About this RNA
Plastid-psbA-1 3UTR RNA: a 119-nucleotide RNA from Zea mays. The literature on the family includes a 2023 paper in Plant Commun by Richter et al., "Retrograde signaling in plants: A critical review focusing on the GUN pathway and beyond". Clan: Plastid-psbA 3UTR RNA clan. Rfam describes the family as follows. Plastid psbA-1 is a non-coding RNA (ncRNA) present in plastids. It was identified in inverted repeat sequences in the 3 prime untranslate region (3UTR) of photosystem II quinone-binding protein (psbA). By type it is a cis-regulatory element. The organism belongs to Zea, within Eukaryota.

RNA sequence: UUGAAGUUCCUUACCUUAAUGGAUAAGGUUUUUCUCCUAAACAUAUAUGAAUUUUUGAGGAAGGAAAGCCCGGAAAUACCCAAUAUCUUGUUCUCAACAGGAUAUUGGGUAUUUUCUUU
Numbered sequence: 001u002u003g004a005a006g007u008u009c010c011u012u013a014c015c016u017u018a019a020u021g022g023a024u025a026a027g028g029u030u031u032u033u034c035u036c037c038u039a040a041a042c043a044u045a046u047a048u049g050a051a052u053u054u055u056u057g058a059g060g061a062a063g064g065a066a067a068g069c070c071c072g073g074a075a076a077u078a079c080c081c082a083a084u085a086u087c088u089u090g091u092u093c094u095c096a097a098c099a100g101g102a103u104a105u106u107g108g109g110u111a112u113u114u115u116c117u118u119u
Base pairs, nucleotide, nucleotide: 008023009022010021012019066119067118072116073115074114075113076112077111078110079109081107082106083105085103086102087101088100089099